[Rfam]
Nucleotides: 085
Stems, first nucleotide, its partner, number of pairs: 001084001003083004
Number, partner (000 for none) and nucleotide at each position: 001084c002000a003083u004082g005081g006080c007000a008000a009000u010000g011000a012000u013000g014000a015000c016000c017000c018000a019000u020000u021000u022000g023000c024000u025000c026000u027000c028000a029000c030000u031000g032000a033000g034000a035000a036000c037000a038000a039000a040000g041000u042000u043000c044000a045000g046000u047000a048000a049000u050000g051000a052000g053000a054000u055000u056000c057000u058000u059000u060000g061000u062000u063000a064000u065000g066000c067000a068000c069000u070000u071000g072000a073000g074000u075000u076000c077000u078000g079000a080006g081005c082004c083003a084001g085000a
This 85-nucleotide sequence from Castor canadensis belongs to the Rfam family "Small nucleolar RNA SNORD103/SNORD85". NCBI's taxonomy places the organism under Eukaryota, Teleostomi, Eutheria, Euarchontoglires, Castor. Rfam links the family to the GO terms RNA processing and nucleolus. It scores 80 bits against the family's covariance model.